[Rfam]
Record summary
The record is a 133-nucleotide RNA, which matches "Small nucleolar RNA SNORA22" in Rfam.
RNA sequence: UUGGGCAGUGAACACCCAAGUGUGCUUUAUAGUUCCUUUGGCUUUGACUUUGUGCUAGAGCAAUGUCUGUUAUUUUUCUCUGCAUUGAAAGGAGCAUUUAUCCUUUUAAAUGUAUUCAGAAAGCCAGUACAUU
Numbered sequence: 001u002u003g004g005g006c007a008g009u010g011a012a013c014a015c016c017c018a019a020g021u022g023u024g025c026u027u028u029a030u031a032g033u034u035c036c037u038u039u040g041g042c043u044u045u046g047a048c049u050u051u052g053u054g055c056u057a058g059a060g061c062a063a064u065g066u067c068u069g070u071u072a073u074u075u076u077u078c079u080c081u082g083c084a085u086u087g088a089a090a091g092g093a094g095c096a097u098u099u100a101u102c103c104u105u106u107u108a109a110a111u112g113u114a115u116u117c118a119g120a121a122a123g124c125c126a127g128u129a130c131a132u133u
Base pairs, nucleotide, nucleotide: 003055005053006052007051008050010049013046014045016041017040018039019038020037022035024033025032026031057073059071060070061069062068079120080119081118082117083112084111085110086109087107088106089105090104091103092102093101
ACA22 is a member of the H/ACA class of snoRNA that guide the sites of modification of uridines to pseudouridines.